[Rfam]
RNA sequence: UAUGGAAGUAGAGGUCGCACUGUUUAUGAGUAAUGGAUGGAUAUGUCAUACGCAUAAACGAAGUUUAUUGAAAGGAAACAGUGCCGAAGGGUCUUAAUGUAUGGAUAAGAUACCCUGGGCUAACAUUGAAUAAGUGUUAGACUGUCACGUAUGUGAUGCGCUACUGAUUUA
Numbered sequence: 001u002a003u004g005g006a007a008g009u010a011g012a013g014g015u016c017g018c019a020c021u022g023u024u025u026a027u028g029a030g031u032a033a034u035g036g037a038u039g040g041a042u043a044u045g046u047c048a049u050a051c052g053c054a055u056a057a058a059c060g061a062a063g064u065u066u067a068u069u070g071a072a073a074g075g076a077a078a079c080a081g082u083g084c085c086g087a088a089g090g091g092u093c094u095u096a097a098u099g100u101a102u103g104g105a106u107a108a109g110a111u112a113c114c115c116u117g118g119g120c121u122a123a124c125a126u127u128g129a130a131u132a133a134g135u136g137u138u139a140g141a142c143u144g145u146c147a148c149g150u151a152u153g154u155g156a157u158g159c160g161c162u163a164c165u166g167a168u169u170u171a
Stems, first nucleotide, its partner, number of pairs: 007165005017084009033068006088116004092110005117143002120140008145156004
RNA: Lysine riboswitch aptamer
Organism: Macrococcus sp. DPC7161